[Rfam]
RNA: tRNA
Organism: Myxococcales bacterium
RNA sequence: GGGCCAUUAGCUCAAUUGGUAGAGCAGCGGACUCUUAAUCCGUUGGCUCGCAGUUCAAGUCUGCGAUGGCCCA
Numbered sequence: 001g002g003g004c005c006a007u008u009a010g011c012u013c014a015a016u017u018g019g020u021a022g023a024g025c026a027g028c029g030g031a032c033u034c035u036u037a038a039u040c041c042g043u044u045g046g047c048u049c050g051c052a053g054u055u056c057a058a059g060u061c062u063g064c065g066a067u068g069g070c071c072c073a
Base pairs, nucleotide, nucleotide: 001072002071003070004069005068006067007066010025011024012023013022027043028042029041030040031039049065050064051063052062053061